[Rfam]
Notes:
A member of the RNA family "Actinobacteria sRNA Ms_IGR-5" from Sphaerisporangium album, 252 nucleotides long. The pairing is the family consensus, mapped onto this sequence. Rfam classes the family as a small RNA.
RNA sequence: ACGCAGAAGGGAGGUGGUCCAAACAAUGGUUGAUCAUUAUUGGGCUAGCGAGGUGGCUGUCCGCUAGGGCAUCGCCAGGUCAGGACCUUCCGUCCAGACGUCGUGCCCCCCUCGGGGCACCGGCGACGUCCGGCGAAUCCAAGACAGACACCGGAACCCCGGGCAGCCGGCGGGGGCAGAGGAUUUCCCCUUUCCCCCUUGGUCCAGCCGGCCCGUCUCACCGUGAGACGGAGCACGCCCGGGGUUCUUUUU
Number, nucleotide and partner (000 for none) at each position: 001a000002c000003g000004c000005a000006g000007a000008a000009g000010g000011g000012a000013g061014g060015u059016g058017g057018u056019c000020c000021a000022a000023a000024c000025a000026a000027u000028g000029g000030u000031u000032g000033a000034u000035c000036a000037u000038u000039a000040u000041u000042g000043g000044g000045c000046u000047a000048g000049c000050g000051a000052g000053g000054u000055g000056g018057c017058u016059g015060u014061c013062c135063g134064c133065u132066a000067g130068g129069g000070c128071a000072u126073c000074g124075c123076c122077a000078g000079g000080u000081c000082a000083g000084g000085a000086c000087c000088u000089u000090c000091c000092g000093u000094c000095c000096a000097g000098a000099c000100g000101u000102c000103g000104u000105g000106c000107c000108c000109c000110c000111c000112u000113c000114g000115g000116g000117g000118c000119a000120c000121c000122g076123g075124c074125g000126a072127c000128g070129u068130c067131c000132g065133g064134c063135g062136a000137a000138u000139c000140c000141a000142a000143g000144a000145c000146a000147g000148a000149c000150a000151c000152c000153g248154g247155a246156a245157c244158c243159c242160c241161g240162g239163g238164c237165a000166g000167c000168c000169g000170g000171c000172g000173g000174g000175g000176g000177c000178a000179g000180a000181g000182g000183a000184u000185u000186u000187c000188c000189c000190c000191u000192u000193u000194c000195c000196c000197c000198c000199u000200u000201g000202g000203u000204c000205c000206a000207g000208c000209c000210g000211g000212c000213c000214c000215g000216u000217c000218u000219c000220a000221c000222c000223g000224u000225g000226a000227g000228a000229c000230g000231g000232a000233g000234c000235a000236c000237g164238c163239c162240c161241g160242g159243g158244g157245u156246u155247c154248u153249u000250u000251u000252u000